[Rfam]
RNA sequence: AUGACAGUAGUAGGAGAGACUCCCCAGGCGGGAGCGCCGAAGAAGUAAAUCUUUCAGGCAAAAGGACUGCUACUUGACG
Numbered sequence: 001a002u003g004a005c006a007g008u009a010g011u012a013g014g015a016g017a018g019a020c021u022c023c024c025c026a027g028g029c030g031g032g033a034g035c036g037c038c039g040a041a042g043a044a045g046u047a048a049a050u051c052u053u054u055c056a057g058g059c060a061a062a063a064g065g066a067c068u069g070c071u072a073c074u075u076g077a078c079g
Stems, first nucleotide, its partner, number of pairs: 006074008020034004036059003039055002043053003
Dot-bracket structure: .....((((((((......((((.......)))).(((((..(((.....))))).))).......)))))))).....
The family of this 79-nucleotide sequence from Desulfobaculum bizertense is "Glycine riboswitch aptamer". The organism belongs to Desulfobaculum bizertense, within Bacteria.